[Rfam]
RNA: Plant signal recognition particle RNA
RNA sequence: GUCGAGCUCAUUCAUGAGAGCUUGUAGCCCGAGCGGGGCAAUGGGUGGUUCGGACGUUUGGUUACGCUUGUGAGCCUGGGUCCAGAUGGGGCGUAUGGUUGUCUCGCCCGUUCCAAGUUGGCUAGUGAGAUGCGCGGCCUGGGUUAAAGCUUGGGUCGCGUUUCUCCUAAAGUGGAGGGGACCGCGUGAGGUUGGCUUCAUAGAGCAGCGAAUACCUCCCGCUCUCAAUGGUGGAAGGAUAAUGGGCCGCCACACCAUGUACCCUUCGUGACCCAUAGGUAAACCAUCAGCGGACAACCAUCUUU
Number, nucleotide and partner (000 for none) at each position: 001g039002u000003c038004g023005a022006g021007c020008u019009c018010a000011u016012u000013c000014a000015u000016g011017a000018g009019a008020g007021c006022u005023u004024g000025u000026a000027g000028c037029c036030c035031g000032a000033g000034c000035g030036g029037g028038g003039c001040a000041a305042u000043g303044g302045g301046u300047g299048g298049u297050u296051c000052g295053g000054a000055c292056g291057u289058u000059u000060g285061g284062u283063u282064a000065c000066g000067c279068u278069u277070g276071u275072g274073a000074g272075c000076c270077u000078g264079g263080g262081u261082c000083c259084a258085g000086a000087u000088g000089g255090g000091g253092c000093g000094u000095a000096u000097g000098g000099u000100u249101g248102u000103c246104u245105c244106g243107c000108c238109c237110g000111u236112u235113c234114c233115a232116a000117g229118u228119u227120g226121g000122c000123u000124a223125g222126u221127g166128a165129g164130a163131u000132g161133c160134g159135c158136g157137g156138c155139c154140u153141g152142g151143g150144u149145u000146a000147a000148a000149g144150c143151u142152u141153g140154g139155g138156u137157c136158g135159c134160g133161u132162u000163u130164c129165u128166c127167c172168u000169a000170a000171a000172g167173u000174g219175g218176a217177g216178g215179g000180g000181a000182c000183c000184g000185c210186g209187u208188g000189a000190g000191g000192u203193u202194g201195g000196c000197u000198u000199c000200a000201u194202a193203g192204a000205g000206c000207a000208g187209c186210g185211a000212a000213u000214a000215c178216c177217u176218c175219c174220c000221g126222c125223u124224c000225u000226c120227a119228a118229u117230g000231g000232u115233g114234g113235a112236a111237g109238g108239a000240u000241a000242a000243u106244g105245g104246g103247c000248c101249g100250c000251c000252a000253c091254a000255c089256c000257a000258u084259g083260u000261a081262c080263c079264c078265u000266u000267c000268g000269u000270g076271a000272c074273c000274c072275a071276u070277a069278g068279g067280u000281a000282a063283a062284c061285c060286a000287u000288c000289a057290g000291c056292g055293g000294a000295c052296a050297a049298c048299c047300a046301u045302c044303u043304u000305u041